[Rfam]
RNA sequence: AACAAUUUGUCUCGUGUCCCGCGGCGUUUUAAAAAUGUCCUGAUUGGGACUUUUUUUAAAACGCCGCGGGACACGAGACAAAUUGUUCA
Numbered sequence: 001a002a003c004a005a006u007u008u009g010u011c012u013c014g015u016g017u018c019c020c021g022c023g024g025c026g027u028u029u030u031a032a033a034a035a036u037g038u039c040c041u042g043a044u045u046g047g048g049a050c051u052u053u054u055u056u057u058a059a060a061a062c063g064c065c066g067c068g069g070g071a072c073a074c075g076a077g078a079c080a081a082a083u084u085g086u087u088c089a
Stems, first nucleotide, its partner, number of pairs: 001087035
The family of this 89-nucleotide RNA sequence from Pipistrellus kuhlii is "mir-9261 microRNA precursor family". The organism belongs to Pipistrellus, within Eukaryota. Rfam 15.1 lists 196 matches to the family in 3 species. The base pairs follow the family's consensus structure, which was predicted with RNAalifold. Its family is annotated with RISC complex and miRNA-mediated post-transcriptional gene silencing in the Gene Ontology. It scores 91 bits against the family's covariance model.